[Rfam]
RNA sequence: CACCGAAAUGGCAAACCCGGUGUGAACCGGGGACGCAAAGCCACGGGACCCGAUGAGGGUCAGCCGGGUUACCGAAU
Numbered sequence: 001c002a003c004c005g006a007a008a009u010g011g012c013a014a015a016c017c018c019g020g021u022g023u024g025a026a027c028c029g030g031g032g033a034c035g036c037a038a039a040g041c042c043a044c045g046g047g048a049c050c051c052g053a054u055g056a057g058g059g060u061c062a063g064c065c066g067g068g069u070u071a072c073c074g075a076a077u
Stems, first nucleotide, its partner, number of pairs: 003074001011036002016031006034063001039070004044066003047061003